[Rfam]
RNA sequence: UGCAACACCCAUCAAAGGAGUAGUUCCCCACCCCGGAGCUACUUUACCAUAUUCUGGCAAC
Numbered sequence: 001u002g003c004a005a006c007a008c009c010c011a012u013c014a015a016a017g018g019a020g021u022a023g024u025u026c027c028c029c030a031c032c033c034c035g036g037a038g039c040u041a042c043u044u045u046a047c048c049a050u051a052u053u054c055u056g057g058c059a060a061c
Base pairs, nucleotide, nucleotide: 017045018044019043020042021041022040023039024038025037026036027035
Rfam assigns this 61-nucleotide RNA sequence from Abrus precatorius to the family "Plastid-psbN 5UTR RNA".
Rfam describes the family as follows. Plastid psbN is a non-coding RNA (ncRNA) recognised in plastids. It was reported as a conserved 11 stem-loop in the prime untranslated region (5UTR) of psbN genes. It has been reported that the motif is retained in a subset of mature transcripts in barley, which can suggests a possible role in transcript alternative 5 prime processing.
Pairs were carried over by alignment from the consensus structure, which was predicted with LocARNA.
Lineage of the source: Eukaryota > Embryophyta > Magnoliopsida > Gunneridae > Abrus.
A reference for the family is Richter et al. (2023), "Retrograde signaling in plants: A critical review focusing on the GUN pathway and beyond", Plant Commun.